[Rfam]
RNA sequence: AGACGGCUCCCGCUGAAUCCGCACAUCGCGGAACCGGGGACCCACCGCACCACUGGGGUGAAUCGGCGCAUCCCCUCGCGCCGUAGGGCAGCUUCCACGCCCGAACCCGUCAGCUAACCCGGUAAGCGGCAUGGAAGCAAAGG
Numbered sequence: 001a002g003a004c005g006g007c008u009c010c011c012g013c014u015g016a017a018u019c020c021g022c023a024c025a026u027c028g029c030g031g032a033a034c035c036g037g038g039g040a041c042c043c044a045c046c047g048c049a050c051c052a053c054u055g056g057g058g059u060g061a062a063u064c065g066g067c068g069c070a071u072c073c074c075c076u077c078g079c080g081c082c083g084u085a086g087g088g089c090a091g092c093u094u095c096c097a098c099g100c101c102c103g104a105a106c107c108c109g110u111c112a113g114c115u116a117a118c119c120c121g122g123u124a125a126g127c128g129g130c131a132u133g134g135a136a137g138c139a140a141a142g143g
Stems, first nucleotide, its partner, number of pairs: 011128004018032003033123006043055002056108003064083006086102004
Dot-bracket structure: ..........((((...(((.........)))((((((....((.........))(((.....((((((........))))))..((((.........))))...))).........)))))).))))...............
Rfam assigns this 143-nucleotide sequence from Actinoallomurus iriomotensis to the family "c-di-AMP riboswitch aptamer (ydaO/yuaA leader)". It scores 89 bits against the family's covariance model. Rfam links the family to the GO terms regulation of gene expression and cyclic-di-AMP binding.